Annotation:
The family of this 78-nucleotide RNA from Denticeps clupeoides is "mir-27 microRNA precursor family". It scores 58 bits against the family's covariance model. Taxonomically the source falls in Denticeps (Eukaryota, Opisthokonta, Eumetazoa, Actinopteri). The base pairs follow the family's consensus structure, which was predicted with RNAalifold. Its family is annotated with RISC complex and miRNA-mediated post-transcriptional gene silencing in the Gene Ontology. The family has 82 seed sequences and 1,440 matches in Rfam 15.1.
RNA sequence: AGUGGAGCCAGGACUUAGCCCACAUGUGAACACUGUACCAGAGUCCCAUGUUCACAGUGGUUAAGUUCUGCCUGCCCU
Numbered sequence: 001a002g003u004g005g006a007g008c009c010a011g012g013a014c015u016u017a018g019c020c021c022a023c024a025u026g027u028g029a030a031c032a033c034u035g036u037a038c039c040a041g042a043g044u045c046c047c048a049u050g051u052u053c054a055c056a057g058u059g060g061u062u063a064a065g066u067u068c069u070g071c072c073u074g075c076c077c078u
Stems, first nucleotide, its partner, number of pairs: 011068010026055007